[Rfam]
DUF3800-IV RNA: a 102-nucleotide RNA from Brachybacterium paraconglomeratum. Rfam classes the family as a small RNA. The family's consensus secondary structure is taken from published work.
RNA sequence: CGGCCCCUCGAGGAGGGUUGCCGGGAUUGGCCGGAACCAGGUGACUGGAUCCUUUCACCCGCUGAGGUGACUGUGGCCCCCGGAGCCCCCCUCGAGGGGCCG
Dot-bracket structure: (((((((((((((.((((..(((((...(((..((.((((....))))......))...((......))......)))))))).)))).)))))))))))))